Shown here is a 158-nucleotide RNA from Populus tomentosa, a member of the family "MIR2912 microRNA precursor family". It scores 128 bits against the family's covariance model. The family has 2 seed sequences and 15,051 matches in Rfam 15.1. The source organism's lineage runs through Eukaryota, Spermatophyta, Malpighiales, Saliceae and Populus.
RNA sequence: UCUAGAACUCUAGAUAUGGACUGGACACUGAACAAUGUCUGAGCUGCAGGACAGAUUCUGAUCGACUUCUUUUGUUGCUAUAAUUUGAGCUUGAAAACGACUGUUUUGAAUCUUGGACUCUUCAUAAAAGUUUUAGGCCUAUGUCUUAGCUUUCCAUC
Numbered sequence: 001u002c003u004a005g006a007a008c009u010c011u012a013g014a015u016a017u018g019g020a021c022u023g024g025a026c027a028c029u030g031a032a033c034a035a036u037g038u039c040u041g042a043g044c045u046g047c048a049g050g051a052c053a054g055a056u057u058c059u060g061a062u063c064g065a066c067u068u069c070u071u072u073u074g075u076u077g078c079u080a081u082a083a084u085u086u087g088a089g090c091u092u093g094a095a096a097a098c099g100a101c102u103g104u105u106u107u108g109a110a111u112c113u114u115g116g117a118c119u120c121u122u123c124a125u126a127a128a129a130g131u132u133u134u135a136g137g138c139c140u141a142u143g144u145c146u147u148a149g150c151u152u153u154c155c156a157u158c
Stems, first nucleotide, its partner, number of pairs: 003156001005154003008149002012146008021136005027131003035125003041121001043119001045117001048114004054107002058103001060101001062100002070094002074090003
Dot-bracket structure: ..(.(((((..((((((((.(((((.(((.....(((...(.(.(..((((..((..(.(.((......((..(((...........)))..))....))).)..))...))))..).).).)))...))))))))..)))))))).))..))).)..